The record is an 88-nucleotide sequence from Aeoliella straminimaris, which matches "c-di-GMP-I-GGC riboswitch aptamer" in Rfam.
The literature on the family includes a 2017 paper in Proc Natl Acad Sci U S A by Weinberg et al., "Bioinformatic analysis of riboswitch structures uncovers variant classes with altered ligand specificity".
RNA sequence: CUCGACAAAGGCAAACCAGUCGUGAGGCUGGGACGCAAAGCCACGGACCAACUUGUCUAAUCGACAGUUGGCAGCCAGGCUGCCGAAG
Numbered sequence: 001c002u003c004g005a006c007a008a009a010g011g012c013a014a015a016c017c018a019g020u021c022g023u024g025a026g027g028c029u030g031g032g033a034c035g036c037a038a039a040g041c042c043a044c045g046g047a048c049c050a051a052c053u054u055g056u057c058u059a060a061u062c063g064a065c066a067g068u069u070g071g072c073a074g075c076c077a078g079g080c081u082g083c084c085g086a087a088g
Stems, first nucleotide, its partner, number of pairs: 001088001003085002011036002016031006034074001039081004045076002048071006